[Rfam]
RNA sequence: GCAAUGGGGGAUCGCCGCUACGUUGCUUUCACUUGGUGGUGCGUACUUACAGCCAUAUAGGAUCCAUGUGAUGUGACGUAGUGGUACCCUCCCAUUU
Numbered sequence: 001g002c003a004a005u006g007g008g009g010g011a012u013c014g015c016c017g018c019u020a021c022g023u024u025g026c027u028u029u030c031a032c033u034u035g036g037u038g039g040u041g042c043g044u045a046c047u048u049a050c051a052g053c054c055a056u057a058u059a060g061g062a063u064c065c066a067u068g069u070g071a072u073g074u075g076a077c078g079u080a081g082u083g084g085u086a087c088c089c090u091c092c093c094a095u096u097u
Stems, first nucleotide, its partner, number of pairs: 003096008015084007023076004029071004034066003